[Rfam]
RNA sequence: UUUGAGGUAAAUGGUGAGUAGCCAACUUGGAGGAAGUGAUCAACCUUUGAGAUAAAAUUAAAUUUGCUUCUUUUUACCCCAAAAACAUUUUACCGUGGGUAAAAAGAAUCUUCUUGGGGUAUAAAAAGAACCAGAUUUAAAUUUAACCCAAGGGUUGAUGAUGUAUUUCCUGGAAGAAAGCUUCUCACUGUUUAUCCCAUG
Numbered sequence: 001u002u003u004g005a006g007g008u009a010a011a012u013g014g015u016g017a018g019u020a021g022c023c024a025a026c027u028u029g030g031a032g033g034a035a036g037u038g039a040u041c042a043a044c045c046u047u048u049g050a051g052a053u054a055a056a057a058u059u060a061a062a063u064u065u066g067c068u069u070c071u072u073u074u075u076a077c078c079c080c081a082a083a084a085a086c087a088u089u090u091u092a093c094c095g096u097g098g099g100u101a102a103a104a105a106g107a108a109u110c111u112u113c114u115u116g117g118g119g120u121a122u123a124a125a126a127a128g129a130a131c132c133a134g135a136u137u138u139a140a141a142u143u144u145a146a147c148c149c150a151a152g153g154g155u156u157g158a159u160g161a162u163g164u165a166u167u168u169c170c171u172g173g174a175a176g177a178a179a180g181c182u183u184c185u186c187a188c189u190g191u192u193u194a195u196c197c198c199a200u201g
Stems, first nucleotide, its partner, number of pairs: 003199002006196013020182003026176003031171005039162004043155003047151003051147001053145004058140009068130007075121008086106001088104007
This 201-nucleotide RNA sequence from Medicago truncatula belongs to the Rfam family "MIR2670 microRNA precursor family". Rfam links the family to the GO terms RISC complex and miRNA-mediated post-transcriptional gene silencing. NCBI's taxonomy places the organism under Eukaryota, Streptophyta, eudicotyledons, fabids, Medicago.